[Rfam]
RNA sequence: CUCUCCUACAAAGGUGUGUCUGUGGCUCCCUGUCUCUGAACAUGUAAACAUUGGAGGCAAAGAAAUAUGGACUUCAAGAAGUCUGGAGCCAGCUUGCUCCCUGCAGGCUCAAGACUGACCAACUCACAUAG
Numbered sequence: 001c002u003c004u005c006c007u008a009c010a011a012a013g014g015u016g017u018g019u020c021u022g023u024g025g026c027u028c029c030c031u032g033u034c035u036c037u038g039a040a041c042a043u044g045u046a047a048a049c050a051u052u053g054g055a056g057g058c059a060a061a062g063a064a065a066u067a068u069g070g071a072c073u074u075c076a077a078g079a080a081g082u083c084u085g086g087a088g089c090c091a092g093c094u095u096g097c098u099c100c101c102u103g104c105a106g107g108c109u110c111a112a113g114a115c116u117g118a119c120c121a122a123c124u125c126a127c128a129u130a131g
Base pairs, nucleotide, nucleotide: 002057003056004055005054006053015044016043017042018041019040021038024030025029069124070123073121091109092108093107094106095105096104097103

Rfam assigns this 131-nucleotide sequence from Otolemur garnettii to the family "Small nucleolar RNA SNORA38". ACA38 is a member of the H/ACA class of snoRNA that guide the sites of modification of uridines to pseudouridines. It is annotated as an H/ACA-box small nucleolar RNA. The base pairs follow the family's consensus structure, which was predicted with RNAfold.